[Rfam]
RNA sequence: GAUACGAGGGGUGAGAACCCCCUCCACCGAAAGUCUAAGGGUUCCGCCGCACGGGCACUCCGCGGCGGGGAAGUCGGGCCUAAGGCGAGGGCGCGAGCCGUAGCUGAUGGACACGCCGUUGAUAAUCGGCGACCACACCCAGAACGUUUGAACGUGACUGAGAUGCUGAUGGGGAAUCCGAGCGACGAGACGAGCGUCGUUCACGCUGGUAGGGAGAAUGAUGUGGCAAAUCCCAUCGUUCGUUGACCGAGAAGCAAGUACGAGCGAAUUCUUUCGGGAAUUGGCGAGUCGGAUGGACCUAGGCAGCCGCGAAAGGCUUGGGCACGGAGGACUGGGUGUGCCCGUACCGCACACCGACACAGGUAGACAGGUCGAGGAGACCAAGGUGGA
Numbered sequence: 001g002a003u004a005c006g007a008g009g010g011g012u013g014a015g016a017a018c019c020c021c022c023u024c025c026a027c028c029g030a031a032a033g034u035c036u037a038a039g040g041g042u043u044c045c046g047c048c049g050c051a052c053g054g055g056c057a058c059u060c061c062g063c064g065g066c067g068g069g070g071a072a073g074u075c076g077g078g079c080c081u082a083a084g085g086c087g088a089g090g091g092c093g094c095g096a097g098c099c100g101u102a103g104c105u106g107a108u109g110g111a112c113a114c115g116c117c118g119u120u121g122a123u124a125a126u127c128g129g130c131g132a133c134c135a136c137a138c139c140c141a142g143a144a145c146g147u148u149u150g151a152a153c154g155u156g157a158c159u160g161a162g163a164u165g166c167u168g169a170u171g172g173g174g175a176a177u178c179c180g181a182g183c184g185a186c187g188a189g190a191c192g193a194g195c196g197u198c199g200u201u202c203a204c205g206c207u208g209g210u211a212g213g214g215a216g217a218a219u220g221a222u223g224u225g226g227c228a229a230a231u232c233c234c235a236u237c238g239u240u241c242g243u244u245g246a247c248c249g250a251g252a253a254g255c256a257a258g259u260a261c262g263a264g265c266g267a268a269u270u271c272u273u274u275c276g277g278g279a280a281u282u283g284g285c286g287a288g289u290c291g292g293a294u295g296g297a298c299c300u301a302g303g304c305a306g307c308c309g310c311g312a313a314a315g316g317c318u319u320g321g322g323c324a325c326g327g328a329g330g331a332c333u334g335g336g337u338g339u340g341c342c343c344g345u346a347c348c349g350c351a352c353a354c355c356g357a358c359a360c361a362g363g364u365a366g367a368c369a370g371g372u373c374g375a376g377g378a379g380a381c382c383a384a385g386g387u388g389g390a
Stems, first nucleotide, its partner, number of pairs: 006024006025388004033368004039348002044068006053061002075344004079110002084105003088101001090099003114131005134340009153326002158321005165307004171300003176294005182200006201263002205255003212248002217240007225233002265286002268281005354363002370382004
Shown here is a 390-nucleotide part of an RNA from Herpetosiphon aurantiacus, a member of the family "Bacterial large subunit ribosomal RNA".
Rfam's curators put it in the seed alignment.
NCBI's taxonomy places the organism under Bacteria, Chloroflexota, Herpetosiphonaceae, Herpetosiphon, Herpetosiphon aurantiacus.